Source information
A member of the RNA family "c-di-AMP riboswitch aptamer (ydaO/yuaA leader)" from Thermoanaerobacterium thermosaccharolyticum, 126 nucleotides long. The source organism's lineage runs through Bacteria, Bacillati, Clostridia, Thermoanaerobacterium and Thermoanaerobacterium thermosaccharolyticum. The pairing is the family consensus, mapped onto this sequence. Gene Ontology terms of the family: cyclic-di-AMP binding and regulation of gene expression.
RNA sequence: UAUGCUAUAACGCUGAAUUCGUAAGAAGCGGGAAAACCAAUUUCAGGGGUGAAUCCAUUUAAUAUGGAAGGGUUAUCUUUCAACCCUAACCCGUCAGCUAACCUCGUAAGCGUUGAAAGAGGAGGA
Dot-bracket structure: ..........((((...(((....)))(((((.....(.......)(((.....((((.....))))..((((.........))))...)))..........))))).))))..............